[Rfam]
RNA sequence: GUUGCCUUCAUUUGUAAGUCGCUUUGGAUAAAAGCAUCUGCUAAAUGCCUAAAU
Numbered sequence: 001g002u003u004g005c006c007u008u009c010a011u012u013u014g015u016a017a018g019u020c021g022c023u024u025u026g027g028a029u030a031a032a033a034g035c036a037u038c039u040g041c042u043a044a045a046u047g048c049c050u051a052a053a054u
Stems, first nucleotide, its partner, number of pairs: 013043001014041003021035005

The family of this 54-nucleotide RNA from Cyprinus carpio is "UnaL2 LINE 3' element". Gene Ontology term of the family: transposition, RNA-mediated. The family's RNA type in Rfam is cis-regulatory element. NCBI's taxonomy places the organism under Eukaryota, Chordata, Vertebrata, Actinopteri, Cyprinus carpio.